[Rfam]
RNA sequence: ACGGGAUAAUCGCUUAAUCUCCGAUAUGGAGAGCGGGGGAACCACAUGUAUGGAUGGAUUAGAUAUAAUCCACUGACCAUACCCUGGGGUGAAUUCCGAUGACAGGCGCUUCCUUAUGCCGCGUGUUCAUCAGAUAGGGCGACUCUCACCGCCCGAAUCCGACAGCUAACCUCGUCAGCGUUGAUGGAGAGGGUUG
Numbered sequence: 001a002c003g004g005g006a007u008a009a010u011c012g013c014u015u016a017a018u019c020u021c022c023g024a025u026a027u028g029g030a031g032a033g034c035g036g037g038g039g040a041a042c043c044a045c046a047u048g049u050a051u052g053g054a055u056g057g058a059u060u061a062g063a064u065a066u067a068a069u070c071c072a073c074u075g076a077c078c079a080u081a082c083c084c085u086g087g088g089g090u091g092a093a094u095u096c097c098g099a100u101g102a103c104a105g106g107c108g109c110u111u112c113c114u115u116a117u118g119c120c121g122c123g124u125g126u127u128c129a130u131c132a133g134a135u136a137g138g139g140c141g142a143c144u145c146u147c148a149c150c151g152c153c154c155g156a157a158u159c160c161g162a163c164a165g166c167u168a169a170c171c172u173c174g175u176c177a178g179c180g181u182u183g184a185u186g187g188a189g190a191g192g193g194u195u196g
Base pairs, nucleotide, nucleotide: 011180012179013178014177018032019031020030021029022028033175034174035173036172037171038170043086044085087160088159089158095134096133098131099130100129101128102127137154138153139152140151
Overview:
c-di-AMP riboswitch aptamer (ydaO/yuaA leader): a 196-nucleotide RNA from Paenibacillus sp. JCM 10914.